RNA sequence: GAUAUGGACGAUCUGAAUAUCCGAAAUUGUAAACGUCGAUGGAUGAAAAUCUACAUUUGAGAUGUUCGUUAGAGAAGAUCUCAUCUUUACGUAGAAAGAGAAAAGCA
Numbered sequence: 001g002a003u004a005u006g007g008a009c010g011a012u013c014u015g016a017a018u019a020u021c022c023g024a025a026a027u028u029g030u031a032a033a034c035g036u037c038g039a040u041g042g043a044u045g046a047a048a049a050u051c052u053a054c055a056u057u058u059g060a061g062a063u064g065u066u067c068g069u070u071a072g073a074g075a076a077g078a079u080c081u082c083a084u085c086u087u088u089a090c091g092u093a094g095a096a097a098g099a100g101a102a103a104a105g106c107a
Stems, first nucleotide, its partner, number of pairs: 001037003005033001008030005014024001050103001052101001056097003062092004068085001072082004
Notes
Shown here is a 107-nucleotide RNA sequence from Arabidopsis thaliana, a member of the family "Small nucleolar RNA ncR1". The literature on the family includes a 2015 paper in BMC Genomics by Qu et al., "Promoter-based identification of novel non-coding RNAs reveals the presence of dicistronic snoRNA-miRNA genes in Arabidopsis thaliana". It is one of the family's seed sequences. Taxonomically the source falls in Arabidopsis (Eukaryota, Viridiplantae, Euphyllophyta, Gunneridae). The family's RNA type in Rfam is H/ACA-box small nucleolar RNA.